[Rfam]
The record is a 93-nucleotide sequence from Streptomyces griseoviridis, which matches "Streptomyces RNA 3202" in Rfam. The pairing is the family consensus, mapped onto this sequence. It scores 72 bits against the family's covariance model. The source organism's lineage runs through Bacteria, Actinomycetota, Kitasatosporales, Streptomycetaceae and Streptomyces. It is annotated as a small RNA. Rfam describes the family as follows. Identified by deep sequencing of transcriptome at the end of exponential growth phase.
Nucleotides: 093
Base pairs, nucleotide, nucleotide: 005036006035007034008033009032010031012029013028014027044089045088046087047086048085049084050083051082052081053080055078056077057076058075059074060073061072062071
Number, partner (000 for none) and nucleotide at each position: 001000a002000c003000g004000c005036g006035u007034c008033c009032c010031g011000a012029c013028g014027c015000a016000c017000a018000u019000c020000c021000c022000c023000c024000c025000c026000g027014g028013c029012g030000c031010c032009g033008g034007g035006a036005c037000c038000u039000u040000c041000c042000g043000u044089g045088a046087g047086c048085c049084g050083g051082g052081c053080u054000u055078c056077g057076g058075c059074g060073c061072c062071c063000c064000u065000c066000c067000c068000c069000c070000c071062g072061g073060g074059c075058g076057c077056u078055g079000a080053g081052g082051c083050c084049c085048g086047g087046c088045u089044c090000u091000c092000u093000c